This 103-nucleotide RNA from Labrus bergylta belongs to the Rfam family "Vault RNA". Pairs were carried over by alignment from the consensus structure, which is taken from published work. The source organism's lineage runs through Eukaryota, Neopterygii, Clupeocephala, Neoteleostei and Labrus. A reference for the family is Stadler et al. (2009), "Evolution of Vault RNAs", Mol Biol Evol.
[Rfam]
RNA sequence: GCACUGGUUUAGCUCAGUGGUUACUUCGAACACAUUUUCUCUGUAGAAAAGCUGCUCUCCAUCCCUCCCUGGGAUCGAACCACGGGCGCUGUCCAGUGUUUUU
Numbered sequence: 001g002c003a004c005u006g007g008u009u010u011a012g013c014u015c016a017g018u019g020g021u022u023a024c025u026u027c028g029a030a031c032a033c034a035u036u037u038u039c040u041c042u043g044u045a046g047a048a049a050a051g052c053u054g055c056u057c058u059c060c061a062u063c064c065c066u067c068c069c070u071g072g073g074a075u076c077g078a079a080c081c082a083c084g085g086g087c088g089c090u091g092u093c094c095a096g097u098g099u100u101u102u103u
Base pairs, nucleotide, nucleotide: 002098003097004096005095006094007093012087013086014085015084017083018082019081020080025079026078027077028076029075